[Rfam]
The record is a 103-nucleotide RNA sequence from Roseibium album, which matches "Pyrrolysine insertion sequence mttB" in Rfam.
Nucleotides: 103
Stems, first nucleotide, its partner, number of pairs: 003012001025032001033062002077101001079099002
Number, partner (000 for none) and nucleotide at each position: 001000a002000u003012g004000a005000c006000u007000g008000a009000c010000g011000c012003c013000a014000a015000g016000a017000c018000c019000g020000c021000c022000g023000a024000u025032g026000c027000g028000c029000a030000a031000u032025c033062g034061g035000g036000c037000u038000a039000u040000g041000a042000a043000a044000a045000g046000g047000g048000c049000u050000a051000u052000a053000c054000c055000a056000u057000u058000g059000c060000g061034c062033u063000a064000u065000c066000u067000g068000c069000g070000c071000a072000g073000g074000c075000a076000g077101g078000c079099g080098c081000g082000g083000a084000c085000a086000u087000g088000a089000u090000c091000a092000a093000c094000c095000u096000c097000a098080g099079u100000g101077u102000c103000g

Source information:
The organism belongs to Roseibium, within Bacteria.